[Rfam]
RNA sequence: UCUGGUGCGGUGAUGAGGUCUAUAAUUAGGACUAGAGUUUCUGAUCUGGGUCUAACUCAGAAGUUGAAGACUAACCCUUGGCUGUCUGAGCACCUAA
Dot-bracket structure: (..(((((.............................((((...((((((.....))))).)...))))....................)))))..)